This 297-nucleotide sequence from Rhipicephalus sanguineus belongs to the Rfam family "Nuclear RNase P".
The base pairs follow the family's consensus structure, which is taken from published work.
A search with the family's covariance model found it, with a score of 144 bits.
Rfam classes the family as a ribozyme.
From the family's description: Ribonuclease P (RNase P) is a ubiquitous endoribonuclease, found in archaea, bacteria and eukarya as well as chloroplasts and mitochondria. Its best characterised activity is the generation of mature 5'-ends of tRNAs by cleaving the 5'-leader elements of precursor-tRNAs. Cellular RNase Ps are ribonucleoproteins.
RNA sequence: GAUGCUUGCAUAAGGGGACACCUACGGAGCACGGCGUUGCUCACAUUGCCCUCCCCUGGGAAGGUCUGAGACAGGAGCCCCGUCGCAGGCCCUAGAAGGGUCCUGACCGUGAGGUCAGUCGGCUCACAAGAAAAGCACGCCGCGGGGUCCGGUUGAGGAAGGAGGCCUUUGUUGUGAAACAAGGGCGGACCGAAGGACCCCGGUCGGACGUUGGAAACGGACCGUGGCUGGCGUUCUGAGCUCGAUUUGCAAGGUGCUGUCUGUUACGCGGCAUAACUCAAUUCAGACUACUCCAUC
Numbered sequence: 001g002a003u004g005c006u007u008g009c010a011u012a013a014g015g016g017g018a019c020a021c022c023u024a025c026g027g028a029g030c031a032c033g034g035c036g037u038u039g040c041u042c043a044c045a046u047u048g049c050c051c052u053c054c055c056c057u058g059g060g061a062a063g064g065u066c067u068g069a070g071a072c073a074g075g076a077g078c079c080c081c082g083u084c085g086c087a088g089g090c091c092c093u094a095g096a097a098g099g100g101u102c103c104u105g106a107c108c109g110u111g112a113g114g115u116c117a118g119u120c121g122g123c124u125c126a127c128a129a130g131a132a133a134a135g136c137a138c139g140c141c142g143c144g145g146g147g148u149c150c151g152g153u154u155g156a157g158g159a160a161g162g163a164g165g166c167c168u169u170u171g172u173u174g175u176g177a178a179a180c181a182a183g184g185g186c187g188g189a190c191c192g193a194a195g196g197a198c199c200c201c202g203g204u205c206g207g208a209c210g211u212u213g214g215a216a217a218c219g220g221a222c223c224g225u226g227g228c229u230g231g232c233g234u235u236c237u238g239a240g241c242u243c244g245a246u247u248u249g250c251a252a253g254g255u256g257c258u259g260u261c262u263g264u265u266a267c268g269c270g271g272c273a274u275a276a277c278u279c280a281a282u283u284c285a286g287a288c289u290a291c292u293c294c295a296u297c
Stems, first nucleotide, its partner, number of pairs: 001297004005253006013057005027042005032036001066286005076229004088102005103118006120224003124220002138210002254274007